[Rfam]
Description:
The family of this 150-nucleotide RNA sequence from Neomonachus schauinslandi is "U12 minor spliceosomal RNA". The pairing is the family consensus, mapped onto this sequence. Lineage of the source: Eukaryota > Teleostomi > Boreoeutheria > Monachini > Neomonachus. Rfam links the family to the GO terms U12 snRNP, mRNA branch site recognition and pre-mRNA branch point binding.
RNA sequence: AUGCCUUAAAUUUAUGAGUAAGGAAAGUAACAAUUCAGUGUGACACCCAAAACCUCACUGUUAAUGUGAGAUCAAUUUUUAAGCAGGUAUAGGCUGCCCCUAAGGUGACCGGCCUACUUUGCAGGAUGCCUGGGAGUCACGAUCUGCCUG
Numbered sequence: 001a002u003g004c005c006u007u008a009a010a011u012u013u014a015u016g017a018g019u020a021a022g023g024a025a026a027g028u029a030a031c032a033a034u035u036c037a038g039u040g041u042g043a044c045a046c047c048c049a050a051a052a053c054c055u056c057a058c059u060g061u062u063a064a065u066g067u068g069a070g071a072u073c074a075a076u077u078u079u080u081a082a083g084c085a086g087g088u089a090u091a092g093g094c095u096g097c098c099c100c101u102a103a104g105g106u107g108a109c110c111g112g113c114c115u116a117c118u119u120u121g122c123a124g125g126a127u128g129c130c131u132g133g134g135a136g137u138c139a140c141g142a143u144c145u146g147c148c149u150g
Stems, first nucleotide, its partner, number of pairs: 004023005034051002038047001054070005084150005091145003095141002100134002103131005109125002112122002